[Rfam]
RNA sequence: UCUACCAGUAUGAUGAAAUAUUUCCGGAUGUAAACACAUUUCUUGUCUGAAAAGCGCAAAACCCCAUGUUGAUAUUUCCGUUGCCUUCCUUCUGAUCUGGUCA
Numbered sequence: 001u002c003u004a005c006c007a008g009u010a011u012g013a014u015g016a017a018a019u020a021u022u023u024c025c026g027g028a029u030g031u032a033a034a035c036a037c038a039u040u041u042c043u044u045g046u047c048u049g050a051a052a053a054g055c056g057c058a059a060a061a062c063c064c065c066a067u068g069u070u071g072a073u074a075u076u077u078c079c080g081u082u083g084c085c086u087u088c089c090u091u092c093u094g095a096u097c098u099g100g101u102c103a
Base pairs, nucleotide, nucleotide: 004101005100025080026079027078028077

Annotation
This 103-nucleotide sequence from Cytospora leucostoma belongs to the Rfam family "Small nucleolar RNA Z13/snr52". Rfam 15.1 lists 1,203 matches to the family in 866 species. Gene Ontology terms of the family: nucleolus and RNA processing. The base pairs follow the family's consensus structure, which was predicted with PFOLD. Lineage of the source: Eukaryota > Opisthokonta > Fungi > sordariomyceta > Cytospora. Rfam classes the family as a C/D-box small nucleolar RNA.